[Rfam]
RNA sequence: UGAUGGCUGUUCUUCUCACUGCGUGGAGCCUUAAGUAGUGGGAUUUUAGUCCAUCAUAUAUCUAAACUGACUUGUUUUCACUCAGGGCACAAUGGGUUAGCUGCCUUUUGAUUUUUGCAGACUCAAACAAUU
Dot-bracket structure: ((((((.(.....(((((.(((............))).))))).....).))))))............((.((........((((((..((..........))..))))))........)).))........
The record is a 132-nucleotide RNA from Moschus moschiferus, which matches "Small nucleolar RNA SNORA79" in Rfam. About the family: ACA65 (SNORA79) is a member of the H/ACA class of snoRNAs that guide the sites of modification of uridines to pseudouridines. A reference for the family is Schattner et al. (2006), "A computational screen for mammalian pseudouridylation guide H/ACA RNAs", RNA. The base pairs follow the family's consensus structure, which was predicted with RNAalifold. The organism belongs to Moschus, within Eukaryota. It scores 95 bits against the family's covariance model. Rfam classes the family as an H/ACA-box small nucleolar RNA.